[Rfam]
Rfam assigns this 107-nucleotide RNA sequence from Nyctereutes procyonoides to the family "mir-8834 microRNA precursor family". The family has 2 seed sequences and 13,926 matches in Rfam 15.1. The match comes from Rfam's covariance-model search (74 bits). Rfam links the family to the GO terms miRNA-mediated post-transcriptional gene silencing and RISC complex.
RNA sequence: AGGAGGAACAGCCCCAGUGGUUAGGGCAGCUCCAGGGAAACCUGGAUUCAGUCCCCACAGGAACUAUGGGGCUCUCGGUCUGCAGGGCCUGGAGGCUCCGGGGCGGG
Numbered sequence: 001a002g003g004a005g006g007a008a009c010a011g012c013c014c015c016a017g018u019g020g021u022u023a024g025g026g027c028a029g030c031u032c033c034a035g036g037g038a039a040a041c042c043u044g045g046a047u048u049c050a051g052u053c054c055c056c057a058c059a060g061g062a063a064c065u066a067u068g069g070g071g072c073u074c075u076c077g078g079u080c081u082g083c084a085g086g087g088c089c090u091g092g093a094g095g096c097u098c099c100g101g102g103g104c105g106g107g
Stems, first nucleotide, its partner, number of pairs: 002099004009091003012087003019080004024075002028073007036065001041061004
The family's consensus secondary structure was predicted with RNAalifold.